[Rfam]
RNA sequence: CUUGCUGUGAGAUAUGUUUGAUAUUCUUGGUUGUGAUUCUGAGUCAGCCAGGAGUCAGACAUAUUCUCACAGAGGG
Numbered sequence: 001c002u003u004g005c006u007g008u009g010a011g012a013u014a015u016g017u018u019u020g021a022u023a024u025u026c027u028u029g030g031u032u033g034u035g036a037u038u039c040u041g042a043g044u045c046a047g048c049c050a051g052g053a054g055u056c057a058g059a060c061a062u063a064u065u066c067u068c069a070c071a072g073a074g075g076g
Stems, first nucleotide, its partner, number of pairs: 005072005011065012024052002029049005
Dot-bracket structure: ....(((((.((((((((((((.((...(((((...........))))).)).))))))))))))..)))))....

The family of this 76-nucleotide RNA sequence from Rhipicephalus microplus is "mir-190 microRNA precursor family". The base pairs follow the family's consensus structure, which was predicted with RNAalifold. Rfam 15.1 lists 1,667 matches to the family in 854 species. A reference for the family is Bar et al. (2008), "MicroRNA discovery and profiling in human embryonic stem cells by deep sequencing of small RNA libraries", Stem Cells.